The family of this 120-nucleotide RNA sequence from Shewanella mangrovi is "Phenylalanine leader peptide". The source organism's lineage runs through Bacteria, Pseudomonadati, Gammaproteobacteria, Shewanellaceae and Shewanella. The literature on the family includes a 1978 paper in Proc Natl Acad Sci U S A by Zurawski et al., "Nucleotide sequence of the leader region of the phenylalanine operon of Escherichia coli". The family has 71 seed sequences and 379 matches in Rfam 15.1.

RNA sequence: GAACAGCAUAAUUUUCUCGUUUUUUACUUUCUUUUUUACACCUCACACCCAGGGGCGGCGGUAACGUGUAAAAACGAAAGUGAAAAUUACCAAGCCUCCCAACCGGGAGGCUUUUUCGUA
Numbered sequence: 001g002a003a004c005a006g007c008a009u010a011a012u013u014u015u016c017u018c019g020u021u022u023u024u025u026a027c028u029u030u031c032u033u034u035u036u037u038a039c040a041c042c043u044c045a046c047a048c049c050c051a052g053g054g055g056c057g058g059c060g061g062u063a064a065c066g067u068g069u070a071a072a073a074a075c076g077a078a079a080g081u082g083a084a085a086a087u088u089a090c091c092a093a094g095c096c097u098c099c100c101a102a103c104c105g106g107g108a109g110g111c112u113u114u115u116u117c118g119u120a
Base pairs, nucleotide, nucleotide: 021086022085023084024083025082026081027080028079029078030077031076033074034073036071037070038069039068042054043053044052055065058062092113093112094111095110096109097108098107099106100105